[Rfam]
RNA sequence: CCUCCGGCUACAUGCUUCUUUGCACAGCCAUACUGCUGAAAUGAGAGAAUUAUGGAAUGUAAAGAAGUAUGUCGCUUGAGG
Numbered sequence: 001c002c003u004c005c006g007g008c009u010a011c012a013u014g015c016u017u018c019u020u021u022g023c024a025c026a027g028c029c030a031u032a033c034u035g036c037u038g039a040a041a042u043g044a045g046a047g048a049a050u051u052a053u054g055g056a057a058u059g060u061a062a063a064g065a066a067g068u069a070u071g072u073c074g075c076u077u078g079a080g081g
Stems, first nucleotide, its partner, number of pairs: 007075002010072015028055005